[Rfam]
RNA sequence: GUCUUUCAAAACAACGAAAGCCCUUCCUCUCUCUCGUCCUUGCGGCUCCAUGACCGCUCCAGUGAGAUUUGUCUGUACAAAACAAUG
Numbered sequence: 001g002u003c004u005u006u007c008a009a010a011a012c013a014a015c016g017a018a019a020g021c022c023c024u025u026c027c028u029c030u031c032u033c034u035c036g037u038c039c040u041u042g043c044g045g046c047u048c049c050a051u052g053a054c055c056g057c058u059c060c061a062g063u064g065a066g067a068u069u070u071g072u073c074u075g076u077a078c079a080a081a082a083c084a085a086u087g
Stems, first nucleotide, its partner, number of pairs: 034067002039062002042057004047052001

Overview
The record is an 87-nucleotide RNA sequence from Lederbergia lenta, which matches "BsrC" in Rfam. The 301 nucleotide sequence from Kouji Nakamura has been trimmed to a highly conserved ~85 nucleotide long core to form this family. On this family, see Saito et al., Gene 2008: "Novel small RNA-encoding genes in the intergenic regions of Bacillus subtilis". The match comes from Rfam's covariance-model search (67 bits).